[Rfam]
RNA sequence: UUAAUAUGGUAAAAAUCCAUUACAGAUUUAUAUAUAUGUUAUCAAGGUUUUAAUUAACAAGGAGGGCAAUUUAAUG
Number, nucleotide and partner (000 for none) at each position: 001u000002u000003a000004a037005u036006a035007u034008g000009g033010u032011a031012a000013a029014a028015a027016u026017c025018c000019a000020u000021u000022a000023c000024a000025g017026a016027u015028u014029u013030a000031u011032a010033u009034a007035u006036a005037u004038g000039u000040u000041a000042u000043c000044a000045a000046g000047g000048u000049u000050u000051u000052a000053a000054u000055u000056a000057a000058c000059a000060a000061g000062g000063a000064g000065g000066g000067c000068a000069a000070u000071u000072u000073a000074a000075u000076g000